[Rfam]
Shown here is a 116-nucleotide RNA from Flavonifractor sp. An306, a member of the family "Molybdenum/Tungsten riboswitch aptamer (Moco RNA motif)".

RNA sequence: UUUAUAUAAAUUCUUCGAGCCCGUAUCGCCUAAAGCGCAAGCCAGGGCGGCGGGCCGGGGUAUAUCUGGAAACGGAUAUGCCUACCACUUUGUAAAGGAGAAUACAGCAUGAAAAA
Numbered sequence: 001u002u003u004a005u006a007u008a009a010a011u012u013c014u015u016c017g018a019g020c021c022c023g024u025a026u027c028g029c030c031u032a033a034a035g036c037g038c039a040a041g042c043c044a045g046g047g048c049g050g051c052g053g054g055c056c057g058g059g060g061u062a063u064a065u066c067u068g069g070a071a072a073c074g075g076a077u078a079u080g081c082c083u084a085c086c087a088c089u090u091u092g093u094a095a096a097g098g099a100g101a102a103u104a105c106a107g108c109a110u111g112a113a114a115a116a
Base pairs, nucleotide, nucleotide: 011102012101013100014099015098016097019055020054021053022052023051024050028048029047030046035042036041058083059082060081061080062079063078064077065076066075067074068073084093085092

Lineage of the source: Bacteria > Bacillati > Bacillota > Eubacteriales > Flavonifractor. The base pairs follow the family's consensus structure, which is taken from published work.